The record is a 52-nucleotide RNA from Listeria innocua, which matches "mcrA RNA" in Rfam.
RNA sequence: AUCGCUGACGAGUGAUACCGUAGAAGUUUAAGUGGUUUCAUAACUACGGAUA
Number, nucleotide and partner (000 for none) at each position: 001a016002u015003c014004g013005c012006u011007g000008a000009c000010g000011a006012g005013u004014g003015a002016u001017a000018c000019c000020g000021u000022a000023g000024a000025a000026g000027u000028u000029u000030a000031a000032g000033u000034g000035g000036u000037u000038u000039c000040a000041u000042a000043a000044c000045u000046a000047c000048g000049g000050a000051u000052a000
It is annotated as a small RNA.